[Rfam]
RNA sequence: ACUUACAUUCAAGUAAAUAUGCGUAUAAUUUAGGGGAUAUGGCCCAAAGUUUCUACCGGACUGCCGUAAAUAGUCUGACUACGCUGAGGAUGUAAGUUGAU
Numbered sequence: 001a002c003u004u005a006c007a008u009u010c011a012a013g014u015a016a017a018u019a020u021g022c023g024u025a026u027a028a029u030u031u032a033g034g035g036g037a038u039a040u041g042g043c044c045c046a047a048a049g050u051u052u053c054u055a056c057c058g059g060a061c062u063g064c065c066g067u068a069a070a071u072a073g074u075c076u077g078a079c080u081a082c083g084c085u086g087a088g089g090a091u092g093u094a095a096g097u098u099g100a101u
Stems, first nucleotide, its partner, number of pairs: 018087001021084005029048003033045003057077007
The family of this 101-nucleotide sequence from Virgibacillus sp. SK37 is "Purine riboswitch aptamer".
Lineage of the source: Bacteria > Bacillati > Bacillota > Caryophanales > Virgibacillus.
From the family's description: Riboswitches are metabolite binding domains within certain messenger RNAs that serve as precision sensors for their corresponding targets.